A member of the RNA family "mir-9198 microRNA precursor family" from Myotis brandtii, 79 nucleotides long.
It scores 98 bits against the family's covariance model.
The source organism's lineage runs through Eukaryota, Bilateria, Deuterostomia, Teleostomi and Myotis.

[Rfam]
RNA sequence: GCCACUGCUCGCACCCGCUGCUGGUGCCCGGCGCUGGUCUUGAUCACUUGGCACCAUCAGCGGGUGCGAGCAGUGGCUG
Dot-bracket structure: ...(((((((((((((((((.(((((((.....................))))))).))))))))))))))))).....